[Rfam]
RNA sequence: UGGCUUAUGAUGAUAAUUAACUUAUCUUAGCGGAUUUCAGUGAGAUUUCUAAUCAAGGAUCUGAAUGUUACACACACUGAGGCCA
Numbered sequence: 001u002g003g004c005u006u007a008u009g010a011u012g013a014u015a016a017u018u019a020a021c022u023u024a025u026c027u028u029a030g031c032g033g034a035u036u037u038c039a040g041u042g043a044g045a046u047u048u049c050u051a052a053u054c055a056a057g058g059a060u061c062u063g064a065a066u067g068u069u070a071c072a073c074a075c076a077c078u079g080a081g082g083c084c085a
Base pairs, nucleotide, nucleotide: 001085002084003083004082005081
The record is an 85-nucleotide RNA sequence from Cicer arietinum, which matches "Small nucleolar RNA R11/Z151" in Rfam. The literature on the family includes a 2001 paper in J Mol Biol by Barneche et al., "Identification of 66 box C/D snoRNAs in Arabidopsis thaliana: extensive gene duplications generated multiple isoforms predicting new ribosomal RNA 2'-O-methylation sites". Rfam links the family to the GO terms RNA processing and nucleolus. The family's RNA type in Rfam is C/D-box small nucleolar RNA. NCBI's taxonomy places the organism under Eukaryota, Euphyllophyta, Spermatophyta, Gunneridae, Cicer.